Shown here is a 310-nucleotide RNA sequence from Cucurbita maxima, a member of the family "Plant signal recognition particle RNA". The organism belongs to Cucurbita, within Eukaryota. By type it is a non-coding RNA gene. Rfam 15.1 lists 4,988 matches to the family in 266 species. Gene Ontology terms of the family: SRP-dependent cotranslational protein targeting to membrane, signal sequence recognition and signal recognition particle, endoplasmic reticulum targeting. It scores 192 bits against the family's covariance model.

RNA sequence: GCCGAGCUUGGUAGCGUAAGCUUGUAACUUGAGUGAGGGCAUUAAGAGAUGGAACAUGAACGCAAAUUUUGUGGGCCGGGUUUAAUUGGGCAAUAUACUGGCCAGCCUAUUUCAAGCAAAGAGUUGGGCCGUAAUGUGAUAUAGGCGAAAGCGCACACAUUGCGAUCCCUAGAGUAGAGGGCAACGCGUCAGGCUGGCCUUCACAGAGCAACGAAAACCUCUCGCUCCUUGCAGUGAAAGGAAAACCGGCUGGUGCCUCUUGGACCCCUUACAAGGUCCUAUAAUUGGGCCUUCAUGAACCAUUUCUAUA
Numbered sequence: 001g002c003c004g005a006g007c008u009u010g011g012u013a014g015c016g017u018a019a020g021c022u023u024g025u026a027a028c029u030u031g032a033g034u035g036a037g038g039g040c041a042u043u044a045a046g047a048g049a050u051g052g053a054a055c056a057u058g059a060a061c062g063c064a065a066a067u068u069u070u071g072u073g074g075g076c077c078g079g080g081u082u083u084a085a086u087u088g089g090g091c092a093a094u095a096u097a098c099u100g101g102c103c104a105g106c107c108u109a110u111u112u113c114a115a116g117c118a119a120a121g122a123g124u125u126g127g128g129c130c131g132u133a134a135u136g137u138g139a140u141a142u143a144g145g146c147g148a149a150a151g152c153g154c155a156c157a158c159a160u161u162g163c164g165a166u167c168c169c170u171a172g173a174g175u176a177g178a179g180g181g182c183a184a185c186g187c188g189u190c191a192g193g194c195u196g197g198c199c200u201u202c203a204c205a206g207a208g209c210a211a212c213g214a215a216a217a218c219c220u221c222u223c224g225c226u227c228c229u230u231g232c233a234g235u236g237a238a239a240g241g242a243a244a245a246c247c248g249g250c251u252g253g254u255g256c257c258u259c260u261u262g263g264a265c266c267c268c269u270u271a272c273a274a275g276g277u278c279c280u281a282u283a284a285u286u287g288g289g290c291c292u293u294c295a296u297g298a299a300c301c302a303u304u305u306c307u308a309u310a
Stems, first nucleotide, its partner, number of pairs: 001040003004023007028037003043310002045307008055297002058294003063288001065286002068284002073279005078267008088258003093254001098253006105246001107241002110239005116232004121227004126168003130164009142155001145152002169174001176222005187213003194206003